This 131-nucleotide RNA sequence from Chrysodeixis includens belongs to the Rfam family "U11 spliceosomal RNA". The literature on the family includes a 2004 paper in Proc Natl Acad Sci U S A by Schneider et al., "Identification of an evolutionarily divergent U11 small nuclear ribonucleoprotein particle in Drosophila". A search with the family's covariance model found it, with a score of 96 bits. The organism belongs to Chrysodeixis, within Eukaryota. The family's RNA type in Rfam is spliceosomal small nuclear RNA.

RNA sequence: AAAAAGGGUGUUUGCCGCUUAGAUGGCACACGCACCGGCAACGGUGCGUGGGGUAUGGCUAUCAAGACAUACUCAACACAUAAUUUUUGUAACGGAGAGGCAGUUGGUCACCCUUAAGAGCCGGCGCCUCC
Numbered sequence: 001a002a003a004a005a006g007g008g009u010g011u012u013u014g015c016c017g018c019u020u021a022g023a024u025g026g027c028a029c030a031c032g033c034a035c036c037g038g039c040a041a042c043g044g045u046g047c048g049u050g051g052g053g054u055a056u057g058g059c060u061a062u063c064a065a066g067a068c069a070u071a072c073u074c075a076a077c078a079c080a081u082a083a084u085u086u087u088u089g090u091a092a093c094g095g096a097g098a099g100g101c102a103g104u105u106g107g108u109c110a111c112c113c114u115u116a117a118g119a120g121c122c123g124g125c126g127c128c129u130c131c
Stems, first nucleotide, its partner, number of pairs: 008079005013028005029050009051074007098129004103125005109120001111118001